The family of this 110-nucleotide RNA from Pseudonocardia asaccharolytica is "TPP riboswitch aptamer (THI element)". Vitamin B(1) in its active form thiamin pyrophosphate (TPP) is an essential coenzyme that is synthesised by coupling of pyrimidine and thiazole moieties in bacteria. The previously detected thiamin-regulatory element, thi box was extended, resulting in a new, highly conserved RNA secondary structure, the THI element, which is widely distributed in eubacteria and also occurs in some archaea. The family's consensus secondary structure is taken from published work. Its family is annotated with thiamine pyrophosphate binding in the Gene Ontology. Taxonomically the source falls in Pseudonocardia asaccharolytica (Bacteria, Pseudonocardiales, Pseudonocardiaceae, Pseudonocardia). The match comes from Rfam's covariance-model search (56 bits).
RNA sequence: ACCUGAACACGCGGGAGCUCGUAACUCAGCGGGCUGAGAGGGCGGCUGGUGCCGCCGACCGCAGAACCUGUCCGGGUAAUGCCGGCGUAGGGAGGAUGCAUGACGUCGUU
Numbered sequence: 001a002c003c004u005g006a007a008c009a010c011g012c013g014g015g016a017g018c019u020c021g022u023a024a025c026u027c028a029g030c031g032g033g034c035u036g037a038g039a040g041g042g043c044g045g046c047u048g049g050u051g052c053c054g055c056c057g058a059c060c061g062c063a064g065a066a067c068c069u070g071u072c073c074g075g076g077u078a079a080u081g082c083c084g085g086c087g088u089a090g091g092g093a094g095g096a097u098g099c100a101u102g103a104c105g106u107c108g109u110u
Base pairs, nucleotide, nucleotide: 007097010094011062012061013060014059017034018033019032020031021030041056042055043054044053045052067091068090069089070088072085073084074083075082